Annotation
Shown here is an 83-nucleotide sequence from Brachypodium distachyon, a member of the family "mir-156 microRNA precursor family".
[Rfam]
RNA sequence: UUGACAGAAGAGAGUGAGCACACGGCGUGAUGUCCGGCAUAUGUAUGCCGUCGUCGCCGCGUGCUCACUCCUCUUUCUGUCAG
Numbered sequence: 001u002u003g004a005c006a007g008a009a010g011a012g013a014g015u016g017a018g019c020a021c022a023c024g025g026c027g028u029g030a031u032g033u034c035c036g037g038c039a040u041a042u043g044u045a046u047g048c049c050g051u052c053g054u055c056g057c058c059g060c061g062u063g064c065u066c067a068c069u070c071c072u073c074u075u076u077c078u079g080u081c082a083g
Base pairs, nucleotide, nucleotide: 001083002082003081004080005079006078007077008076009075010073011072012071013069014068015067016066017065018064019063020062021061023059024058025057

Description
A search with the family's covariance model found it, with a score of 68 bits. The base pairs follow the family's consensus structure, which was predicted with PFOLD.